[Rfam]
RNA sequence: UGUUGAAUGAUGAAAGCAAUCAGACGGAUUCCCACUGAUUUUUUAUGUGAUAUCACAACCAGCUACUUCUGACACCA
Numbered sequence: 001u002g003u004u005g006a007a008u009g010a011u012g013a014a015a016g017c018a019a020u021c022a023g024a025c026g027g028a029u030u031c032c033c034a035c036u037g038a039u040u041u042u043u044u045a046u047g048u049g050a051u052a053u054c055a056c057a058a059c060c061a062g063c064u065a066c067u068u069c070u071g072a073c074a075c076c077a
Base pairs, nucleotide, nucleotide: 001077002076004074005073
The record is a 77-nucleotide RNA from Nelumbo nucifera, which matches "Small nucleolar RNA R12" in Rfam. Rfam links the family to the GO terms nucleolus and RNA processing. By type it is a C/D-box small nucleolar RNA. The match comes from Rfam's covariance-model search (65 bits). snoR12 is a C/D box small nucleolar RNA, which acts as a methylation guide for 25S ribosomal RNA in plants. snoR12 has been alternatively named snoZ44 in Arabidopsis and snoZ131 in rice. The source organism's lineage runs through Eukaryota, Streptophyta, Euphyllophyta, Proteales and Nelumbo. A reference for the family is Chen et al. (2003), "The high diversity of snoRNAs in plants: identification and comparative study of 120 snoRNA genes from Oryza sativa", Nucleic Acids Res.